[Rfam]
RNA: U7 small nuclear RNA
RNA sequence: GAGUAUCGCAGCUCUUUUAGAAUUUGUCUGGCAGGCUUUCCGGUCUUUACUGGAAGACCCCC
Numbered sequence: 001g002a003g004u005a006u007c008g009c010a011g012c013u014c015u016u017u018u019a020g021a022a023u024u025u026g027u028c029u030g031g032c033a034g035g036c037u038u039u040c041c042g043g044u045c046u047u048u049a050c051u052g053g054a055a056g057a058c059c060c061c062c
Stems, first nucleotide, its partner, number of pairs: 034059002037056008